[Rfam]
RNA sequence: CCCCUUCCGCCGGGCCCGCCCGUUUCCUAUAAUCCGGGCUGCCGGGGCAACCCGGCUAUGGCGAUAAACGGUGCCUGGAAUAAGCGUAGCGGACCCGGGGGCAGUGCCCGGCGCCUCCACCAUCAUCUCCCCCUGCGGCGGGGGCCUUAAGGGGGCGAAACAGGCUCGACGCGCGUGGUAAAGAGGUACCUUUCGCCCGGCACGGUUCCGCCGUCAUCGGGCCAAUCCACAAGUGCCAACGACAACAGCCGUAUGGCGCUCGCUGCCUGAUCUGAUCGGGUAAGCGCGGUUCGGGGGGCACCGGGCAACAGAAGCCCCCCACU
Numbered sequence: 001c002c003c004c005u006u007c008c009g010c011c012g013g014g015c016c017c018g019c020c021c022g023u024u025u026c027c028u029a030u031a032a033u034c035c036g037g038g039c040u041g042c043c044g045g046g047g048c049a050a051c052c053c054g055g056c057u058a059u060g061g062c063g064a065u066a067a068a069c070g071g072u073g074c075c076u077g078g079a080a081u082a083a084g085c086g087u088a089g090c091g092g093a094c095c096c097g098g099g100g101g102c103a104g105u106g107c108c109c110g111g112c113g114c115c116u117c118c119a120c121c122a123u124c125a126u127c128u129c130c131c132c133c134u135g136c137g138g139c140g141g142g143g144g145c146c147u148u149a150a151g152g153g154g155g156c157g158a159a160a161c162a163g164g165c166u167c168g169a170c171g172c173g174c175g176u177g178g179u180a181a182a183g184a185g186g187u188a189c190c191u192u193u194c195g196c197c198c199g200g201c202a203c204g205g206u207u208c209c210g211c212c213g214u215c216a217u218c219g220g221g222c223c224a225a226u227c228c229a230c231a232a233g234u235g236c237c238a239a240c241g242a243c244a245a246c247a248g249c250c251g252u253a254u255g256g257c258g259c260u261c262g263c264u265g266c267c268u269g270a271u272c273u274g275a276u277c278g279g280g281u282a283a284g285c286g287c288g289g290u291u292c293g294g295g296g297g298g299c300a301c302c303g304g305g306c307a308a309c310a311g312a313a314g315c316c317c318c319c320c321a322c323u
Base pairs, nucleotide, nucleotide: 041056042055043054044053045052060197061196062195063194064193070190071189072188073187074186075185076184085175086174087173089172090171091170095111096110097109098108099107112157113156114155115154116153117152118151198213199212200211201210204223205222207221208220209219287303288302289301290300293320294319295318296317297316298315
Overview
The family of this 323-nucleotide sequence from Elioraea tepida is "Alphaproteobacteria transfer-messenger RNA". Clan: tRNA clan. The base pairs follow the family's consensus structure, which is taken from published work. It scores 238 bits against the family's covariance model. Taxonomically the source falls in Elioraea (Bacteria, Pseudomonadati, Alphaproteobacteria, Elioraeaceae). A reference for the family is Laslett et al. (2002), "BRUCE: a program for the detection of transfer-messenger RNA genes in nucleotide sequences", Nucleic Acids Res.